A member of the RNA family "FIE3 (ftz instability element 3') element" from Drosophila pseudoobscura, 83 nucleotides long.
Its family is annotated with mRNA destabilization in the Gene Ontology.
Rfam's curators write: The fushi tarazu gene is essential for the establishment of the Drosophila embryonic body plan. When first expressed in early embryogenesis, fushi tarazu mRNA is uniformly distributed over most of the embryo. Subsequently, fushi tarazu mRNA expression rapidly evolves into a pattern of seven stripes that encircle the embryo. The instability of fushi tarazu mRNA is probably crucial for attaining this localised pattern of expression. Experiments provide evidence for at least two destabilising elements in the fushi tarazu mRNA, one located within the 5' one-third of the mRNA and the other near the 3' end (termed FIE3 for ftz instability element 3'). The FIE3 lies within a 201-nucleotide sequence just upstream of the polyadenylation signal and can act autonomously to destabilise a heterologous mRNA. Further deletion constructs identified an essential 68-nucleotide element within the FIE3.
On this family, see Riedl and Jacobs-Lorena, Mol Cell Biol 1996: "Determinants of Drosophila fushi tarazu mRNA instability".
It is annotated as a cis-regulatory element.
RNA sequence: UGAUAAUGAUUCAAGAUCUUGGAGACUGACACACACACACACAUGUUUUCUUUUAAGCGAAAGUGCUUUUCUGUACAGUAGUA
Numbered sequence: 001u002g003a004u005a006a007u008g009a010u011u012c013a014a015g016a017u018c019u020u021g022g023a024g025a026c027u028g029a030c031a032c033a034c035a036c037a038c039a040c041a042c043a044u045g046u047u048u049u050c051u052u053u054u055a056a057g058c059g060a061a062a063g064u065g066c067u068u069u070u071c072u073g074u075a076c077a078g079u080a081g082u083a
Base pairs, nucleotide, nucleotide: 021050022049023048024047025046026045027043028042